Shown here is a 91-nucleotide RNA sequence from Oryctolagus cuniculus, a member of the family "Small nucleolar RNA SNORD111". The literature on the family includes a 2001 paper in EMBO J by Huttenhofer et al., "RNomics: an experimental approach that identifies 201 candidates for novel, small, non-messenger RNAs in mouse". The base pairs follow the family's consensus structure, which was predicted with RNAalifold. Its family is annotated with nucleolus and RNA processing in the Gene Ontology. A search with the family's covariance model found it, with a score of 95 bits. Rfam classes the family as a C/D-box small nucleolar RNA.
RNA sequence: UAGCCUGAAAUGAUGACAAUUUAAAUUUCAUGUCUCUUCUCUGACAUUUUCCUCUGGAGAUAGUUUCUGCCUCACUGGUCUGAUCAGGCUG
Number, nucleotide and partner (000 for none) at each position: 001u091002a090003g089004c088005c087006u000007g000008a000009a000010a000011u000012g000013a000014u000015g000016a000017c000018a000019a000020u000021u000022u000023a000024a000025a000026u000027u000028u000029c000030a000031u000032g000033u000034c000035u000036c000037u000038u000039c000040u000041c000042u000043g000044a000045c000046a000047u000048u000049u000050u000051c000052c000053u000054c000055u000056g000057g000058a000059g000060a000061u000062a000063g000064u000065u000066u000067c000068u000069g000070c000071c000072u000073c000074a000075c000076u000077g000078g000079u000080c000081u000082g000083a000084u000085c000086a000087g005088g004089c003090u002091g001